[Rfam]
RNA sequence: UAGCACGUCAGACAGGUGCUCUGCUUCUCUUUAAAGAACAUGGAUUUAUCCACACCAUGUGACAUGAAUGAAAUGAGAAGUUUUCAGGGCUGACAACCUUUCAGUGAAAGGUUUUGCGGUAGUAUAUUUCUUCCACAAUA
Numbered sequence: 001u002a003g004c005a006c007g008u009c010a011g012a013c014a015g016g017u018g019c020u021c022u023g024c025u026u027c028u029c030u031u032u033a034a035a036g037a038a039c040a041u042g043g044a045u046u047u048a049u050c051c052a053c054a055c056c057a058u059g060u061g062a063c064a065u066g067a068a069u070g071a072a073a074u075g076a077g078a079a080g081u082u083u084u085c086a087g088g089g090c091u092g093a094c095a096a097c098c099u100u101u102c103a104g105u106g107a108a109a110g111g112u113u114u115u116g117c118g119g120u121a122g123u124a125u126a127u128u129u130c131u132u133c134c135a136c137a138a139u140a
Base pairs, nucleotide, nucleotide: 003060004059005058007056016041017040018039020037021036022035077133078132079131080130089120090119095113096112097111098110099109100108
Shown here is a 140-nucleotide RNA from Jaculus jaculus, a member of the family "Small nucleolar RNA U109". The match comes from Rfam's covariance-model search (60 bits). Lineage of the source: Eukaryota > Opisthokonta > Chordata > Rodentia > Jaculus.